[Rfam]
RNA sequence: UUAACUCAAAUUAGUAUGAGAUUGGAACGUUUACCUACGUUUGCCGCUAGGGGCGCUGUUCCAACUGCAGAGUUAACUUUUACGCUA
Numbered sequence: 001u002u003a004a005c006u007c008a009a010a011u012u013a014g015u016a017u018g019a020g021a022u023u024g025g026a027a028c029g030u031u032u033a034c035c036u037a038c039g040u041u042u043g044c045c046g047c048u049a050g051g052g053g054c055g056c057u058g059u060u061c062c063a064a065c066u067g068c069a070g071a072g073u074u075a076a077c078u079u080u081u082a083c084g085c086u087a
Base pairs, nucleotide, nucleotide: 008081009080010079011076012075013074014073015071018068020066022064023063024062025061026060027059028058029057034052035051036050039047040046

Rfam assigns this 87-nucleotide sequence from Bombyx mori to the family "mir-2807 microRNA precursor family". A search with the family's covariance model found it, with a score of 55 bits. The family's consensus secondary structure was predicted with RNAalifold. For this family Rfam cites "MicroRNAs of Bombyx mori identified by Solexa sequencing" (Liu et al., BMC Genomics, 2010). Gene Ontology terms of the family: miRNA-mediated post-transcriptional gene silencing and RISC complex. Taxonomically the source falls in Bombyx (Eukaryota, Metazoa, Eumetazoa, Protostomia).